[Rfam]
This 31-nucleotide sequence belongs to the Rfam family "L31-Firmicutes ribosomal protein leader".
The literature on the family includes a 2020 paper in BMC Microbiol by Eckert and Weinberg, "Discovery of 20 novel ribosomal leader candidates in bacteria and archaea".
Clan: Ribosomal Protein L31 Leader clan.
RNA sequence: CUAUGAAAUGGAAUUUUCAUGGCAAAAGGAG
Numbered sequence: 001c002u003a004u005g006a007a008a009u010g011g012a013a014u015u016u017u018c019a020u021g022g023c024a025a026a027a028g029g030a031g
Stems, first nucleotide, its partner, number of pairs: 001022005006016003
Dot-bracket structure: ((((((((.....))).))))).........